[Rfam]
RNA sequence: UUUUAGCCCCGAUUGAAGUGGAAAUCCUUUACUGUUUUUGGAAAAAGCCCUUCGACUGCGCUCAGGGUGACAAACAGUAAAGAUUGUAACGCAAAGCGGGAAAAUGG
Number, nucleotide and partner (000 for none) at each position: 001u000002u000003u000004u000005a000006g000007c000008c000009c099010c098011g097012a000013u095014u094015g000016a000017a000018g090019u089020g000021g000022a000023a085024a084025u083026c082027c000028u000029u080030u079031a078032c077033u076034g075035u074036u073037u000038u000039u000040g000041g000042a000043a000044a000045a000046a000047g000048c000049c000050c000051u000052u000053c000054g000055a000056c000057u000058g000059c000060g000061c000062u000063c000064a000065g000066g000067g000068u000069g000070a000071c000072a000073a036074a035075c034076a033077g032078u031079a030080a029081a000082g026083a025084u024085u023086g000087u000088a000089a019090c018091g000092c000093a000094a014095a013096g000097c011098g010099g009100g000101a000102a000103a000104a000105u000106g000107g000
Rfam assigns this 107-nucleotide sequence to the family "Flavo-1 RNA". The family's consensus secondary structure is taken from published work. By type it is a small RNA.